Shown here is a 154-nucleotide sequence from Amborella trichopoda, a member of the family "MIR8565 microRNA precursor family".
It scores 146 bits against the family's covariance model.
Rfam links the family to the GO terms miRNA-mediated post-transcriptional gene silencing and RISC complex.

RNA sequence: CCCUCACCCAUGUGUGUAGGACCCCAAAUGAUCACCAUUAAAGUUGGCAUGGAUCUCUAUAAAAGGUAUCACAUUGGUGUGAGACUUGACUUUUCUAUAGAUCUGUGCCAACUUUAAUGGUGAUCCUUUGGGGUUCUAUACACAUGGGUGGGGG
Numbered sequence: 001c002c003c004u005c006a007c008c009c010a011u012g013u014g015u016g017u018a019g020g021a022c023c024c025c026a027a028a029u030g031a032u033c034a035c036c037a038u039u040a041a042a043g044u045u046g047g048c049a050u051g052g053a054u055c056u057c058u059a060u061a062a063a064a065g066g067u068a069u070c071a072c073a074u075u076g077g078u079g080u081g082a083g084a085c086u087u088g089a090c091u092u093u094u095c096u097a098u099a100g101a102u103c104u105g106u107g108c109c110a111a112c113u114u115u116a117a118u119g120g121u122g123a124u125c126c127u128u129u130g131g132g133g134u135u136c137u138a139u140a141c142a143c144a145u146g147g148g149u150g151g152g153g154g
Base pairs, nucleotide, nucleotide: 002153003152004151005150006149007148008147009146010145011144012143013142015140016139017138018137019136020135021134022133023132024131025130026129027128028127030125031124032123034121035120036119037118038117039116040115041114042113043112044111045110046109047108048107049106050105051104052103053102054101055100056099058097059096061094062093063092064091065090067088068087069082070081071080072079073078